[Rfam]
RNA sequence: UCCAGCGGAUUAAUAUCGGGACUAGACGACGGCCAGUCUUCAGCUCUGAUGAAGUCCGAAACG
Number, nucleotide and partner (000 for none) at each position: 001u000002c000003c000004a000005g000006c058007g057008g056009a055010u054011u053012a000013a000014u051015a050016u049017c048018g047019g046020g045021a000022c043023u042024a000025g041026a040027c000028g038029a037030c036031g000032g000033c000034c000035a000036g030037u029038c028039u000040u026041c025042a023043g022044c000045u020046c019047u018048g017049a016050u015051g014052a000053a011054g010055u009056c008057c007058g006059a000060a000061a000062c000063g000

A member of the RNA family "mir-2834 microRNA precursor family" from Bombyx mori, 63 nucleotides long. NCBI's taxonomy places the organism under Eukaryota, Arthropoda, Hexapoda, Bombycidae, Bombyx.